[Rfam]
RNA: mir-274 microRNA precursor family
RNA sequence: UGUUAAGCGAAGUUGGUUUGUGACCGUCACUAACGGGCAGUGAUUAUGUUUUGCUCGUUUUGACGAUCGCAAAAUGAACUCACUUGAC
Numbered sequence: 001u002g003u004u005a006a007g008c009g010a011a012g013u014u015g016g017u018u019u020g021u022g023a024c025c026g027u028c029a030c031u032a033a034c035g036g037g038c039a040g041u042g043a044u045u046a047u048g049u050u051u052u053g054c055u056c057g058u059u060u061u062g063a064c065g066a067u068c069g070c071a072a073a074a075u076g077a078a079c080u081c082a083c084u085u086g087a088c
Base pairs, nucleotide, nucleotide: 003087004086005085006084007083009081010080013077014076015075017073018072019071020070021069022068023067025065026064032059033058034057035056036055037054038053039052